[Rfam]
RNA sequence: UGGUGCCCAACAUGAGGCUGGAUACUGGGGGCAUCUUGUGAGGGAGACAAUGGAAAAAGGAAAGAGUGCACUCGUUCAAUUUUGAGUAGUUCAGAGACGCACCGGGGGAGCCUGCCGAGACCGAACCAAAGGUAAGUUGUGCCGUCUGAUCAUGGGGCAAGAAUUGAGCCAGCAUCAAGUUAUGUCAAGCAAUUGAGAGAGGCUCUAAAGACAUGAGGAGUAAAGGUUAAGACUGCAGGUUUAUUUCAUUUCUUUGAUUUUGUAAAGGACAUUUGUCCCU
Numbered sequence: 001u002g003g004u005g006c007c008c009a010a011c012a013u014g015a016g017g018c019u020g021g022a023u024a025c026u027g028g029g030g031g032c033a034u035c036u037u038g039u040g041a042g043g044g045a046g047a048c049a050a051u052g053g054a055a056a057a058a059g060g061a062a063a064g065a066g067u068g069c070a071c072u073c074g075u076u077c078a079a080u081u082u083u084g085a086g087u088a089g090u091u092c093a094g095a096g097a098c099g100c101a102c103c104g105g106g107g108g109a110g111c112c113u114g115c116c117g118a119g120a121c122c123g124a125a126c127c128a129a130a131g132g133u134a135a136g137u138u139g140u141g142c143c144g145u146c147u148g149a150u151c152a153u154g155g156g157g158c159a160a161g162a163a164u165u166g167a168g169c170c171a172g173c174a175u176c177a178a179g180u181u182a183u184g185u186c187a188a189g190c191a192a193u194u195g196a197g198a199g200a201g202g203c204u205c206u207a208a209a210g211a212c213a214u215g216a217g218g219a220g221u222a223a224a225g226g227u228u229a230a231g232a233c234u235g236c237a238g239g240u241u242u243a244u245u246u247c248a249u250u251u252c253u254u255u256g257a258u259u260u261u262g263u264a265a266a267g268g269a270c271a272u273u274u275g276u277c278c279c280u
Base pairs, nucleotide, nucleotide: 006031007030008029012026013024014023036050037049038048039047086133087132091129098123099122103119106116107115140159141158142157145156146155147154148153165207166206168203169202170201214256215255216254217253218252219251220250224242225241226240227239228238265280267278268277269276270275